This 86-nucleotide RNA from Solanum tuberosum belongs to the Rfam family "MIR8024 microRNA precursor family". The match comes from Rfam's covariance-model search (72 bits). Lineage of the source: Eukaryota > Magnoliopsida > eudicotyledons > Solanaceae > Solanum. Rfam 15.1 lists 661 matches to the family in 8 species.
RNA sequence: UUCAAGAAUUUGAAGACUUUAACUUGCAGACUCGAAGAAUUUGAAGACUUCAACUUGUAGACUUGAAAAAUUUGAAGACUUCAACU
Numbered sequence: 001u002u003c004a005a006g007a008a009u010u011u012g013a014a015g016a017c018u019u020u021a022a023c024u025u026g027c028a029g030a031c032u033c034g035a036a037g038a039a040u041u042u043g044a045a046g047a048c049u050u051c052a053a054c055u056u057g058u059a060g061a062c063u064u065g066a067a068a069a070a071u072u073u074g075a076a077g078a079c080u081u082c083a084a085c086u
Base pairs, nucleotide, nucleotide: 001084002083004081005080006079009076010075011074012073013072014071018067019066020065021064025059026058027057028056032053034051035050036049037048